The record is a 48-nucleotide sequence from Ranzania japonica, which matches "Plastid-ycf3 group II-D1 intron" in Rfam. Plastid rpl16 is a non-coding RNA (ncRNA) recognised in plastids. Pairs were carried over by alignment from the consensus structure, which was predicted with LocARNA. Rfam links the family to the GO term Group II intron splicing. Rfam's curators put it in the seed alignment.

RNA sequence: AUUCCUUCUGUCGUGUAUCCUCGGUUGAUGCAGCCUCAGAUGCUUCAA
Numbered sequence: 001a002u003u004c005c006u007u008c009u010g011u012c013g014u015g016u017a018u019c020c021u022c023g024g025u026u027g028a029u030g031c032a033g034c035c036u037c038a039g040a041u042g043c044u045u046c047a048a
Stems, first nucleotide, its partner, number of pairs: 010025004032044003